[Rfam]
RNA sequence: UGCCAUAUUCCAAAUAAUCAUGAGCACAUUUGGAAUUUGUGUUCAUAGUGUAAUAAUGUGGCUAUAAUAAGACAGGUUUUGCUUCCAUCACUAAAGAUUUAUUAGUGGUGACAAUGAGACCUGUAACAGUC
Number, nucleotide and partner (000 for none) at each position: 001u000002g062003c061004c060005a000006u058007a057008u056009u000010c000011c000012a000013a000014a000015u000016a000017a000018u000019c000020a000021u045022g044023a043024g042025c041026a040027c039028a000029u000030u000031u000032g000033g000034a000035a000036u000037u000038u000039g027040u026041g025042u024043u023044c022045a021046u000047a000048g000049u000050g000051u000052a000053a000054u000055a000056a008057u007058g006059u000060g004061g003062c002063u000064a000065u000066a000067a000068u000069a000070a000071g000072a124073c123074a122075g121076g120077u000078u000079u000080u000081g000082c000083u000084u000085c000086c110087a109088u108089c107090a106091c105092u000093a000094a000095a000096g000097a000098u000099u000100u000101a000102u000103u000104a000105g091106u090107g089108g088109u087110g086111a000112c000113a000114a000115u000116g000117a000118g000119a000120c076121c075122u074123g073124u072125a000126a000127c000128a000129g000130u000131c000
Record summary:
Shown here is a 131-nucleotide RNA from Vombatus ursinus, a member of the family "Small nucleolar RNA SNORA1". Taxonomically the source falls in Vombatus (Eukaryota, Chordata, Gnathostomata, Teleostomi). The family's RNA type in Rfam is H/ACA-box small nucleolar RNA. The match comes from Rfam's covariance-model search (112 bits). From the family's description: ACA1 is a member of the H/ACA class of snoRNA that guide the sites of modification of uridines to pseudouridines.